[Rfam]
RNA sequence: ACCGCUAAGCCAUCUCUCCAGCCCUUCUGUUCUUUUAUUAAAAAUACUCGGGCUGGAGAGAUGGCUUAGCGGU
Numbered sequence: 001a002c003c004g005c006u007a008a009g010c011c012a013u014c015u016c017u018c019c020a021g022c023c024c025u026u027c028u029g030u031u032c033u034u035u036u037a038u039u040a041a042a043a044a045u046a047c048u049c050g051g052g053c054u055g056g057a058g059a060g061a062u063g064g065c066u067u068a069g070c071g072g073u
Base pairs, nucleotide, nucleotide: 002072003071004070005069006068007067008066009065010064011063012062013061014060015059016058017057018056019055020054021053022052023051024050
A member of the RNA family "mir-3473 microRNA precursor family" from Jaculus jaculus, 73 nucleotides long. Its family is annotated with cellular response to mechanical stimulus, miRNA-mediated post-transcriptional gene silencing and RISC complex in the Gene Ontology. The family's consensus secondary structure was predicted with RNAalifold. The match comes from Rfam's covariance-model search (76 bits).